[Rfam]
RNA sequence: AACUAGUGGUAACAAAGCAGUUACUACUUGAGUAUGUUACUGAUAAGCAGGCAGAACUCAGAUUACGUAGAAAAUGUCCUUUUUCUACGUAGUCUGAGUUUUUUUUCUAGAAAGGAGUAUU
Numbered sequence: 001a002a003c004u005a006g007u008g009g010u011a012a013c014a015a016a017g018c019a020g021u022u023a024c025u026a027c028u029u030g031a032g033u034a035u036g037u038u039a040c041u042g043a044u045a046a047g048c049a050g051g052c053a054g055a056a057c058u059c060a061g062a063u064u065a066c067g068u069a070g071a072a073a074a075u076g077u078c079c080u081u082u083u084u085c086u087a088c089g090u091a092g093u094c095u096g097a098g099u100u101u102u103u104u105u106u107c108u109a110g111a112a113a114g115g116a117g118u119a120u121u
Stems, first nucleotide, its partner, number of pairs: 002033003005028009034120005040115002048110001050108001053102019
RNA: cis-regulatory element of the bglG/LicT operon